[Rfam]
RNA sequence: GUAUACCCAUUGCUUGGCCGCAGAGAUCAUCACCAUGUUUAUCGAUGAUGUCAUCACAAUGGGUAUCGGCGCGUUGGCUUCGAUUUCGCUAUUUAUUGCGGUUGUAGGUUUCAUCGUCUGGAAGGAUAUGCAUAAACGCUGACCUUCUGGACAAAGGGCACGCAAGGCACUUGGGCGACUUCGGUCGCCUUUUUUUUG
Number, nucleotide and partner (000 for none) at each position: 001g000002u000003a000004u000005a000006c000007c000008c000009a000010u101011u100012g099013c098014u000015u000016g000017g000018c000019c000020g000021c000022a000023g000024a000025g000026a000027u000028c000029a000030u000031c000032a000033c000034c000035a000036u000037g000038u000039u000040u000041a000042u000043c000044g000045a000046u000047g000048a000049u000050g060051u059052c000053a000054u000055c000056a000057c000058a000059a051060u050061g000062g000063g000064u000065a000066u000067c000068g000069g000070c000071g000072c000073g000074u000075u000076g000077g000078c000079u000080u000081c000082g000083a000084u000085u000086u000087c000088g000089c000090u000091a000092u000093u000094u000095a000096u000097u000098g013099c012100g011101g010102u000103u000104g000105u000106a000107g000108g000109u000110u000111u000112c000113a000114u000115c000116g000117u000118c000119u000120g000121g000122a000123a000124g000125g000126a000127u000128a000129u000130g000131c000132a000133u000134a000135a000136a000137c000138g000139c000140u000141g000142a000143c000144c000145u000146u000147c000148u000149g000150g000151a000152c000153a000154a000155a000156g000157g000158g168159c167160a000161c166162g000163c000164a000165a000166g161167g159168c158169a000170c000171u000172u000173g000174g189175g188176c187177g186178a185179c184180u000181u000182c000183g000184g179185u178186c177187g176188c175189c174190u000191u000192u000193u000194u000195u000196u000197u000198g000
RNA: PhrS
Organism: Pseudomonas sp. HPB0071